[Rfam]
RNA sequence: UGACCAGGCAGGAUGACAGCGGGCGAGGGGGGACCUUCGCAUGAGGAAAGUCCGGGCUUCACAGGGCAGGAUAGCUGCUAACGGCAGCCGAAGGCGACUUUAGGGACAGUGCAACAGAGAGAUACCGCCGGAAUUUUUCCGGUAAGGGUGGAAAGGCGAGGUAAGAGCUCACCGGGGUGCAGGAGACUGCACUGCCAUGUAAACCCUAUCCGAAGCAACACCGUGACUGCAAAGGGUUGGACGGUUGCCCGCCGUCCCCGUUUACGGCAGUUUUGCCAGCGGUCUAUGUGGCUUGAACCGUCGAGCAAUCGCCGGUCUAGAUAGAUUGUCAUCACAACAGAACCCGGCUUAUUUGCCUGAUCAUUCC
Numbered sequence: 001u002g003a004c005c006a007g008g009c010a011g012g013a014u015g016a017c018a019g020c021g022g023g024c025g026a027g028g029g030g031g032g033a034c035c036u037u038c039g040c041a042u043g044a045g046g047a048a049a050g051u052c053c054g055g056g057c058u059u060c061a062c063a064g065g066g067c068a069g070g071a072u073a074g075c076u077g078c079u080a081a082c083g084g085c086a087g088c089c090g091a092a093g094g095c096g097a098c099u100u101u102a103g104g105g106a107c108a109g110u111g112c113a114a115c116a117g118a119g120a121g122a123u124a125c126c127g128c129c130g131g132a133a134u135u136u137u138u139c140c141g142g143u144a145a146g147g148g149u150g151g152a153a154a155g156g157c158g159a160g161g162u163a164a165g166a167g168c169u170c171a172c173c174g175g176g177g178u179g180c181a182g183g184a185g186a187c188u189g190c191a192c193u194g195c196c197a198u199g200u201a202a203a204c205c206c207u208a209u210c211c212g213a214a215g216c217a218a219c220a221c222c223g224u225g226a227c228u229g230c231a232a233a234g235g236g237u238u239g240g241a242c243g244g245u246u247g248c249c250c251g252c253c254g255u256c257c258c259c260g261u262u263u264a265c266g267g268c269a270g271u272u273u274u275g276c277c278a279g280c281g282g283u284c285u286a287u288g289u290g291g292c293u294u295g296a297a298c299c300g301u302c303g304a305g306c307a308a309u310c311g312c313c314g315g316u317c318u319a320g321a322u323a324g325a326u327u328g329u330c331a332u333c334a335c336a337a338c339a340g341a342a343c344c345c346g347g348c349u350u351a352u353u354u355g356c357c358u359g360a361u362c363a364u365u366c367c
Stems, first nucleotide, its partner, number of pairs: 001363003005359006011352001012333007020043002023040006048350003052347005057215004064272002069211005074088005089103001090101004104206002109204002111200003125147002127143007155173002158170003174195001175193002178191005219290003225284006266277004297316004302311003

Rfam assigns this 367-nucleotide sequence from Clostridium sp. CAG:169 to the family "Bacterial RNase P class A". Lineage of the source: Bacteria > Bacillota > Clostridia > Clostridiaceae > Clostridium. The base pairs follow the family's consensus structure, which is taken from published work. Rfam's curators write: Ribonuclease P (RNase P) is a ubiquitous endoribonuclease, found in archaea, bacteria and eukarya as well as chloroplasts and mitochondria. A search with the family's covariance model found it, with a score of 262 bits.